[Rfam]
RNA: t44 RNA
Organism: Coxiellaceae bacterium
RNA sequence: AAGGAAGUGCUAAAAAUUCACACACAUAUGAAAGUCAUUUCCUGGGGUGCCCUUAACGGGGUUAGGAAAUGCAAUAUGUGGAGGCUAAAC
Dot-bracket structure: ......................(((((((......(((((((((....(((((....))))))))))))))..)))))))..........